[Rfam]
RNA sequence: UCCAUAUUUCAUCUCCGAGCCGACUGGUCCUAAGGGGAGACAUCCUAUGGUCAGCGGCCAACGGGUUCUGCCGGAAACAGCAGAGCCUUCUAUUGAAAAGGGGAUGGUUUGCAUCGGAA
Numbered sequence: 001u002c003c004a005u006a007u008u009u010c011a012u013c014u015c016c017g018a019g020c021c022g023a024c025u026g027g028u029c030c031u032a033a034g035g036g037g038a039g040a041c042a043u044c045c046u047a048u049g050g051u052c053a054g055c056g057g058c059c060a061a062c063g064g065g066u067u068c069u070g071c072c073g074g075a076a077a078c079a080g081c082a083g084a085g086c087c088u089u090c091u092a093u094u095g096a097a098a099a100g101g102g103g104a105u106g107g108u109u110u111g112c113a114u115c116g117g118a119a
Base pairs, nucleotide, nucleotide: 006110011105012104013103014102015101016100019058020057021056022055024054025053026052029050030049034046035045036044037043063088064087065086066085067084068083069082070081071080073078089096090095
Shown here is a 119-nucleotide RNA from a Geobacteraceae bacterium, a member of the family "Molybdenum/Tungsten riboswitch aptamer (Moco RNA motif)".
The family has 160 seed sequences and 1,248 matches in Rfam 15.1.
NCBI's taxonomy places the organism under Bacteria, Thermodesulfobacteriota, Desulfuromonadia, Geobacterales, Geobacteraceae.
It scores 56 bits against the family's covariance model.
Gene Ontology terms of the family: regulation of gene expression, tungstate binding and molybdenum ion binding.